[Rfam]
Eukaryotic large subunit ribosomal RNA: a 487-nucleotide part of an RNA from Puccinia triticina. Taxonomically the source falls in Puccinia triticina (Eukaryota, Basidiomycota, Pucciniomycetes, Puccinia).
RNA sequence: CCUGCCGAAGUUUCCCUCGGGAUAGCAAAGACUCGUAUCAGUUUUAUGAGGUAAAGCGAAUGAUUAGAGGCCUUGGGGAUGAACAUCCUUAACCUAUUCUCAAACUUUAAAUAUGUAAGACGCUCCUGUUUCUUAAUUGAACGUGGGCAUGUGAAUGAGAGUCUUUAGUGGGCCAUUUUGGUAAGCAGAACUGGCGAUGCGGGAUGAACCGAACGUGAGGUUAAGGUGCCGGAAUAUACACUCAUCAGACACUACAAAGGUGUUAGUUCAUCUAGACAGCCGCACGGUGGCCAUGGAAGUCGGAAUCCGCUAAGGAGUGUGUAACAACUCAACGGCCGAAUGAACUAGCCUGAAAUGGAUGGCGCUUAAGUGUAUUACCCAUACCUCACCAUUAAUAUUGUUGUUAUAUAUUAAUGAGUAGGCAGGCGUGGAGGUUAUGUAGCGAGCCUUGGCAGUGAUGCUGGGUGGAACAGCCUCUAGUGCAGAU
Dot-bracket structure: ((((((....(.(((....))).)..(((((((........(((((((.....(((....(((..(.(((..((((((.(....).))))))))).)..)))..)).).....))))))).((((.((((.........)))).))))...........))))))).....(((((((((.....))))).))))....(((......)))...(((((.(...(((......(.(..(((.................((.((((((((((.......((((..(((...((.........))...)))(...)(...((......)).)..))))...))))))))))))..................)))..)))))...).)))))(((((((((.........)))))))))....))))))(.((((((((.(.......((....(((....)))...))...).))))))))..).....
Numbered sequence: 001c002c003u004g005c006c007g008a009a010g011u012u013u014c015c016c017u018c019g020g021g022a023u024a025g026c027a028a029a030g031a032c033u034c035g036u037a038u039c040a041g042u043u044u045u046a047u048g049a050g051g052u053a054a055a056g057c058g059a060a061u062g063a064u065u066a067g068a069g070g071c072c073u074u075g076g077g078g079a080u081g082a083a084c085a086u087c088c089u090u091a092a093c094c095u096a097u098u099c100u101c102a103a104a105c106u107u108u109a110a111a112u113a114u115g116u117a118a119g120a121c122g123c124u125c126c127u128g129u130u131u132c133u134u135a136a137u138u139g140a141a142c143g144u145g146g147g148c149a150u151g152u153g154a155a156u157g158a159g160a161g162u163c164u165u166u167a168g169u170g171g172g173c174c175a176u177u178u179u180g181g182u183a184a185g186c187a188g189a190a191c192u193g194g195c196g197a198u199g200c201g202g203g204a205u206g207a208a209c210c211g212a213a214c215g216u217g218a219g220g221u222u223a224a225g226g227u228g229c230c231g232g233a234a235u236a237u238a239c240a241c242u243c244a245u246c247a248g249a250c251a252c253u254a255c256a257a258a259g260g261u262g263u264u265a266g267u268u269c270a271u272c273u274a275g276a277c278a279g280c281c282g283c284a285c286g287g288u289g290g291c292c293a294u295g296g297a298a299g300u301c302g303g304a305a306u307c308c309g310c311u312a313a314g315g316a317g318u319g320u321g322u323a324a325c326a327a328c329u330c331a332a333c334g335g336c337c338g339a340a341u342g343a344a345c346u347a348g349c350c351u352g353a354a355a356u357g358g359a360u361g362g363c364g365c366u367u368a369a370g371u372g373u374a375u376u377a378c379c380c381a382u383a384c385c386u387c388a389c390c391a392u393u394a395a396u397a398u399u400g401u402u403g404u405u406a407u408a409u410a411u412u413a414a415u416g417a418g419u420a421g422g423c424a425g426g427c428g429u430g431g432a433g434g435u436u437a438u439g440u441a442g443c444g445a446g447c448c449u450u451g452g453c454a455g456u457g458a459u460g461c462u463g464g465g466u467g468g469a470a471c472a473g474c475c476u477c478u479a480g481u482g483c484a485g486a487u
Stems, first nucleotide, its partner, number of pairs: 001426006011024001013022003027166007042120007054108001055106002061102003066097001068095003073092006080085001122148004127143004172195004176190005200211003215389005221383001225379003234376001236375001239372003259351002262349010279336004285309003291303002310314001315330001319328002390416009427482001429479008438470001446466002452461003